[Rfam]
RNA sequence: UGAACGGGUCGCGACUGGCGUUCAGGUGGAUACCACCGGGGAGCGACACGACCAACGAAGACCGCGGGACCGUUCGCCUGGGCCCUGGGU
Numbered sequence: 001u002g003a004a005c006g007g008g009u010c011g012c013g014a015c016u017g018g019c020g021u022u023c024a025g026g027u028g029g030a031u032a033c034c035a036c037c038g039g040g041g042a043g044c045g046a047c048a049c050g051a052c053c054a055a056c057g058a059a060g061a062c063c064g065c066g067g068g069a070c071c072g073u074u075c076g077c078c079u080g081g082g083c084c085c086u087g088g089g090u
Stems, first nucleotide, its partner, number of pairs: 005050002008047005015040002017078004026036004067085002070082002
ZMP/ZTP riboswitch aptamer (pfl RNA motif): a 90-nucleotide RNA from Mumia sp. ZJ1417. It scores 52 bits against the family's covariance model. The organism belongs to Mumia, within Bacteria.